Rfam assigns this 310-nucleotide RNA sequence from Desulfurococcus sp. to the family "Archaeal RNase P". The family is grouped with related families in Rfam's "RNaseP clan". It scores 178 bits against the family's covariance model. The source organism's lineage runs through Archaea, Thermoproteati, Thermoproteota, Thermoprotei and Desulfurococcus. By type it is a ribozyme. Its family is annotated with multimeric ribonuclease P complex, ribonuclease P activity and tRNA processing in the Gene Ontology. Rfam's curators write: Ribonuclease P (RNase P) is a ubiquitous endoribonuclease, found in archaea, bacteria and eukarya as well as chloroplasts and mitochondria. Its best characterised activity is the generation of mature 5'-ends of tRNAs by cleaving the 5'-leader elements of precursor-tRNAs. Cellular RNase Ps are ribonucleoproteins.

RNA sequence: GCGGCCGGGCGCCCCACUCACGCCCCGAGAGGGGUGAGGAAACUCCGCACACCCCGUGGCAGUGCGGCCCCGUAAGGGGCACGGGUAGUCCCCGUGGCUCCGGCACAGAAACGGUACGGCCAUUACUGGAUGGCUAUGAUGUGGCCAACCCUCGGCGACGAGGGUUAAUCCACGGAGGACGGUAGUGGAGGCGUUGAAACGGCCGUCCCGCACGGUGCAAGGCCCUGGCCCGGUGUGAGGGCCACGCGACCGGUAUGGGCCGCAUAGACGAAUGUGGGGUUGAACAGAAUGCGGGUUACCGCCCGGCCGC
Numbered sequence: 001g002c003g004g005c006c007g008g009g010c011g012c013c014c015c016a017c018u019c020a021c022g023c024c025c026c027g028a029g030a031g032g033g034g035u036g037a038g039g040a041a042a043c044u045c046c047g048c049a050c051a052c053c054c055c056g057u058g059g060c061a062g063u064g065c066g067g068c069c070c071c072g073u074a075a076g077g078g079g080c081a082c083g084g085g086u087a088g089u090c091c092c093c094g095u096g097g098c099u100c101c102g103g104c105a106c107a108g109a110a111a112c113g114g115u116a117c118g119g120c121c122a123u124u125a126c127u128g129g130a131u132g133g134c135u136a137u138g139a140u141g142u143g144g145c146c147a148a149c150c151c152u153c154g155g156c157g158a159c160g161a162g163g164g165u166u167a168a169u170c171c172a173c174g175g176a177g178g179a180c181g182g183u184a185g186u187g188g189a190g191g192c193g194u195u196g197a198a199a200c201g202g203c204c205g206u207c208c209c210g211c212a213c214g215g216u217g218c219a220a221g222g223c224c225c226u227g228g229c230c231c232g233g234u235g236u237g238a239g240g241g242c243c244a245c246g247c248g249a250c251c252g253g254u255a256u257g258g259g260c261c262g263c264a265u266a267g268a269c270g271a272a273u274g275u276g277g278g279g280u281u282g283a284a285c286a287g288a289a290u291g292c293g294g295g296u297u298a299c300c301g302c303c304c305g306g307c308c309g310c
Base pairs, nucleotide, nucleotide: 001310002309003308005306006305007304008303009302010301011300012279013278014277015276016275017274021036022035023034024033025032041297042296043295045294046293047292048291049290050217051216052215053214055246056245057244058243059242062213063212064211065210066209067080068079069078070077071076081095082094083093084092085091096208097207101205102204103203104202117193118192120188121187122186123185124184125183126182127181141173142172143171144170221261222260223259224258230253231252232251233250